[Rfam]
RNA: MIR473 microRNA precursor family
Organism: Anisodus acutangulus
RNA sequence: UUUUUUCACUCUCCCUCAAAGGCUUCUGGCUUAAAAUGCGUUACAGUUUGGUUUGUGCUAAUGCCAGAGGUCUUUCGAGUGAGAGUGGAUAA
Numbered sequence: 001u002u003u004u005u006u007c008a009c010u011c012u013c014c015c016u017c018a019a020a021g022g023c024u025u026c027u028g029g030c031u032u033a034a035a036a037u038g039c040g041u042u043a044c045a046g047u048u049u050g051g052u053u054u055g056u057g058c059u060a061a062u063g064c065c066a067g068a069g070g071u072c073u074u075u076c077g078a079g080u081g082a083g084a085g086u087g088g089a090u091a092a
Stems, first nucleotide, its partner, number of pairs: 006088008015079001017077001018075013